[Rfam]
RNA: Glycine riboswitch aptamer
RNA sequence: UGGUUAAACUCUGGAGAGCGGCUGUUCGUUCGAUACAGCCCACCGAAGGGGCGUGCAAACCUAUCCGUUUGCUAUCUCUCAGGUACCAAGGACAGAGGGGUUCGA
Number, nucleotide and partner (000 for none) at each position: 001u000002g000003g000004u000005u000006a000007a000008a000009c097010u096011c095012u094013g093014g000015a000016g000017a000018g000019c000020g040021g039022c038023u037024g036025u035026u000027c000028g000029u000030u000031c000032g000033a000034u000035a025036c024037a023038g022039c021040c020041c000042a084043c083044c082045g080046a079047a000048g000049g078050g077051g076052c000053g000054u000055g072056c071057a070058a069059a068060c000061c000062u000063a000064u000065c000066c000067g000068u059069u058070u057071g056072c055073u000074a000075u000076c051077u050078c049079u046080c045081a000082g044083g043084u042085a000086c000087c000088a000089a000090g000091g000092a000093c013094a012095g011096a010097g009098g000099g000100g000101u000102u000103c000104g000105a000